Rfam assigns this 76-nucleotide RNA from Sapayoa aenigma to the family "Epstein-Barr virus stable intronic sequence RNA 2". The family's RNA type in Rfam is non-coding RNA gene. It scores 44 bits against the family's covariance model. Lineage of the source: Eukaryota > Sauria > Coelurosauria > Passeriformes > Sapayoa.
[Rfam]
RNA sequence: ACCGCGGGGGGUUGGGGGGGAUGGCCCGGGCUCCCCGAACGGGGAGCCCGGGCCAUCCCCCCCAGUCCCCCGCGGU
Numbered sequence: 001a002c003c004g005c006g007g008g009g010g011g012u013u014g015g016g017g018g019g020g021a022u023g024g025c026c027c028g029g030g031c032u033c034c035c036c037g038a039a040c041g042g043g044g045a046g047c048c049c050g051g052g053c054c055a056u057c058c059c060c061c062c063c064a065g066u067c068c069c070c071c072g073c074g075g076u
Stems, first nucleotide, its partner, number of pairs: 001076009011066002016061020